[Rfam]
RNA sequence: UCAUCCGGGUCGGUAUCCUGGCUUGAUGACAUUGCGAAACUGACUCAUCUGGUUGAGCAGGGCGGGUCCCGUUAAAUACAAAGUCCACACGGCGGGAUAAAAAUCUCGUGAAUUGCUGGAACACCCUAAAGCUUUUUCAGCCACAACGUGACUGGCAACAGUGAGCGUGAAGGCCUGAAAAUGAAAAAGAUGACACAAUGGGCAAUCAGCAGCGAAGCAUCUUUGGAAACGGAGAUGAACGUUCAGAGACUAUUGAAAGCACCUGUAAAAUGGUGCGAGUAAACCGGAUUCAUUAUCCGGGGCACGAGACAAAAUCUUAUGACUGAUUUUGAUGAUAGAGUCCGAUCUCAUGUGAAAGCAUGAG
Numbered sequence: 001u002c003a004u005c006c007g008g009g010u011c012g013g014u015a016u017c018c019u020g021g022c023u024u025g026a027u028g029a030c031a032u033u034g035c036g037a038a039a040c041u042g043a044c045u046c047a048u049c050u051g052g053u054u055g056a057g058c059a060g061g062g063c064g065g066g067u068c069c070c071g072u073u074a075a076a077u078a079c080a081a082a083g084u085c086c087a088c089a090c091g092g093c094g095g096g097a098u099a100a101a102a103a104u105c106u107c108g109u110g111a112a113u114u115g116c117u118g119g120a121a122c123a124c125c126c127u128a129a130a131g132c133u134u135u136u137u138c139a140g141c142c143a144c145a146a147c148g149u150g151a152c153u154g155g156c157a158a159c160a161g162u163g164a165g166c167g168u169g170a171a172g173g174c175c176u177g178a179a180a181a182u183g184a185a186a187a188a189g190a191u192g193a194c195a196c197a198a199u200g201g202g203c204a205a206u207c208a209g210c211a212g213c214g215a216a217g218c219a220u221c222u223u224u225g226g227a228a229a230c231g232g233a234g235a236u237g238a239a240c241g242u243u244c245a246g247a248g249a250c251u252a253u254u255g256a257a258a259g260c261a262c263c264u265g266u267a268a269a270a271u272g273g274u275g276c277g278a279g280u281a282a283a284c285c286g287g288a289u290u291c292a293u294u295a296u297c298c299g300g301g302g303c304a305c306g307a308g309a310c311a312a313a314a315u316c317u318u319a320u321g322a323c324u325g326a327u328u329u330u331g332a333u334g335a336u337a338g339a340g341u342c343c344g345a346u347c348u349c350a351u352g353u354g355a356a357a358g359c360a361u362g363a364g
Stems, first nucleotide, its partner, number of pairs: 006025008104309004109304002114211006124202003212242002218237005246343001248342004312329005349362005

The family of this 364-nucleotide sequence from Metabacillus indicus is "Group I catalytic intron". Pairs were carried over by alignment from the consensus structure, which is taken from published work.